[Rfam]
RtT RNA: a 98-nucleotide RNA from Ewingella americana. A reference for the family is Bosl and Kersten (1991), "A novel RNA product of the tyrT operon of Escherichia coli", Nucleic Acids Res. By type it is a cis-regulatory element. Taxonomically the source falls in Ewingella americana (Bacteria, Pseudomonadati, Gammaproteobacteria, Ewingella). A search with the family's covariance model found it, with a score of 55 bits. The family's consensus secondary structure is taken from published work.
RNA sequence: GCUGAGCGAACGGUUCGAGACCAAAGGCUCGAGCCGAGCGAAGCGAGACAGCGUUGCAAAGCAACGACCCGAAGGGCGAGGCCAGAGGCCGAGUAAUC
Number, nucleotide and partner (000 for none) at each position: 001g098002c000003u096004g000005a000006g000007c000008g000009a000010a000011c000012g000013g000014u000015u000016c078017g077018a000019g000020a000021c076022c075023a000024a000025a000026g000027g000028c000029u072030c071031g070032a000033g000034c000035c045036g044037a000038g000039c000040g000041a000042a000043g000044c036045g035046a000047g000048a000049c000050a000051g000052c066053g065054u064055u063056g062057c061058a000059a000060a000061g057062c056063a055064a054065c053066g052067a000068c000069c000070c031071g030072a029073a000074g000075g022076g021077c017078g016079a000080g000081g000082c000083c000084a000085g000086a000087g000088g000089c000090c000091g000092a000093g000094u000095a000096a003097u000098c001